RNA sequence: AUUAAAUGGAAAGCGCCAGAACCCGUUUUGCCGGGUUGACGAGGGGGGAGUUUAUCGAAAUUUCGGCGGGUGCUCCCCGGUUCGGUCAUGACCGUUAAAGGUAUUACAAAACCCGCGGGUAACUGCGGGGACAAAGGAUGCCGGAUGACCAGU
Numbered sequence: 001a002u003u004a005a006a007u008g009g010a011a012a013g014c015g016c017c018a019g020a021a022c023c024c025g026u027u028u029u030g031c032c033g034g035g036u037u038g039a040c041g042a043g044g045g046g047g048g049a050g051u052u053u054a055u056c057g058a059a060a061u062u063u064c065g066g067c068g069g070g071u072g073c074u075c076c077c078c079g080g081u082u083c084g085g086u087c088a089u090g091a092c093c094g095u096u097a098a099a100g101g102u103a104u105u106a107c108a109a110a111a112c113c114c115g116c117g118g119g120u121a122a123c124u125g126c127g128g129g130g131a132c133a134a135a136g137g138a139u140g141c142c143g144g145a146u147g148a149c150c151a152g153u
Base pairs, nucleotide, nucleotide: 020037021036022035023034024033025032046077047076048075049074050073055066056065057064058063078094079093080092081091082090100142101141102140103139104138105137112129113128114127115126116125117124118123